RNA sequence: UCCUACGUGAUGAUCAAAGCUAUAUUUCUGACACCUCAUAUGAAUCCUUGUGAUUCAAGUUUGCUAUACUUCUGAUUGG
Dot-bracket structure: ((.....................................((((....))))..........................))
Shown here is a 79-nucleotide RNA from Apolygus lucorum, a member of the family "Small nucleolar RNA Me28S-Gm3255". Rfam 15.1 lists 39 matches to the family in 29 species. Rfam links the family to the GO terms nucleolus and RNA processing. It scores 45 bits against the family's covariance model.